[Rfam]
RNA sequence: UCUUUGGAGAGUUAUAAAAACUAGAGUAGCUUAUCAAAGUAUUUUCAAUAGCCAAAUAGAACUCAUUGAAAAAGAAA
Numbered sequence: 001u002c003u004u005u006g007g008a009g010a011g012u013u014a015u016a017a018a019a020a021c022u023a024g025a026g027u028a029g030c031u032u033a034u035c036a037a038a039g040u041a042u043u044u045u046c047a048a049u050a051g052c053c054a055a056a057u058a059g060a061a062c063u064c065a066u067u068g069a070a071a072a073a074g075a076a077a
Base pairs, nucleotide, nucleotide: 001075002074003073004072005071009064010063011062012061013060021059022058023057029052030051031050033049034048

RAGATH-18 RNA: a 77-nucleotide RNA sequence. About the family: Actinobacteria, Firmicutes, Fusobacteria, Thermotogae (1 example). It is one of the family's seed sequences.